[Rfam]
RNA: Group II catalytic intron D1-D4-3
RNA sequence: AGGAAGGGAUAGCGAAAUCGUGGCUCUACGAACAGAAAUUUGAUAUGAAGGCGUAUAUAGCGGAUAAAGGGGAAGAAAACUCUAAAGUCCAAAUAGGUAGAUGUAAUCUAGAUGCGUAAAUCACGAGAGAAUUGAAUAUGGGCUAAGGUCGUUGU
Numbered sequence: 001a002g003g004a005a006g007g008g009a010u011a012g013c014g015a016a017a018u019c020g021u022g023g024c025u026c027u028a029c030g031a032a033c034a035g036a037a038a039u040u041u042g043a044u045a046u047g048a049a050g051g052c053g054u055a056u057a058u059a060g061c062g063g064a065u066a067a068a069g070g071g072g073a074a075g076a077a078a079a080c081u082c083u084a085a086a087g088u089c090c091a092a093a094u095a096g097g098u099a100g101a102u103g104u105a106a107u108c109u110a111g112a113u114g115c116g117u118a119a120a121u122c123a124c125g126a127g128a129g130a131a132u133u134g135a136a137u138a139u140g141g142g143c144u145a146a147g148g149u150c151g152u153u154g155u
Stems, first nucleotide, its partner, number of pairs: 006155001008153003013147001018141005024129004039125001041123004051117003055113002058110003062090004068083004